[Rfam]
RNA sequence: AGUUGGAUAAGGCACUUUAUUUUGUGGCUUCUGUCAAAGUAAGGGCCUUAUCCAUAGAG
Numbered sequence: 001a002g003u004u005g006g007a008u009a010a011g012g013c014a015c016u017u018u019a020u021u022u023u024g025u026g027g028c029u030u031c032u033g034u035c036a037a038a039g040u041a042a043g044g045g046c047c048u049u050a051u052c053c054a055u056a057g058a059g
Stems, first nucleotide, its partner, number of pairs: 004054009018041007026034001
Dot-bracket structure: ...(((((((((.....(((((((.(.......))))))))....))))))))).....
mir-7386 microRNA precursor family: a 59-nucleotide RNA sequence from Phascolarctos cinereus. Gene Ontology terms of the family: miRNA-mediated post-transcriptional gene silencing and RISC complex. The base pairs follow the family's consensus structure, which was predicted with RNAalifold.